The record is a 174-nucleotide RNA from Sporolactobacillus shoreae, which matches "Group II catalytic intron D1-D4-3" in Rfam.
The base pairs follow the family's consensus structure.
The source organism's lineage runs through Bacteria, Bacillota, Bacilli, Sporolactobacillaceae and Sporolactobacillus.
[Rfam]
RNA sequence: UCCAUCGUGAGGUGGAAUCUGAAGGAAGCCGGAGGCAAAAUUCCGAGCCGAUGAAUAAGAACUGCAUACUAAGGCUGAACAGAGGUGGAUGAGCCUGCAAGACAAGGUGAAGUCCAAUACUGCCCGAACCCCAUUCAGUAAAUGCAGCGGCUACAUGGAAGGAAAGCGGUCGUU
Numbered sequence: 001u002c003c004a005u006c007g008u009g010a011g012g013u014g015g016a017a018u019c020u021g022a023a024g025g026a027a028g029c030c031g032g033a034g035g036c037a038a039a040a041u042u043c044c045g046a047g048c049c050g051a052u053g054a055a056u057a058a059g060a061a062c063u064g065c066a067u068a069c070u071a072a073g074g075c076u077g078a079a080c081a082g083a084g085g086u087g088g089a090u091g092a093g094c095c096u097g098c099a100a101g102a103c104a105a106g107g108u109g110a111a112g113u114c115c116a117a118u119a120c121u122g123c124c125c126g127a128a129c130c131c132c133a134u135u136c137a138g139u140a141a142a143u144g145c146a147g148c149g150g151c152u153a154c155a156u157g158g159a160a161g162g163a164a165a166g167c168g169g170u171c172g173u174u
Base pairs, nucleotide, nucleotide: 001016002015003014004013005012006011028174030172031171032170035167036166041160042159043158044157045156046152047151048150049149050148062147063146064145065144066143067142074139075138076137078135079134082131084130085129087115088114089113090112093108094107095106096105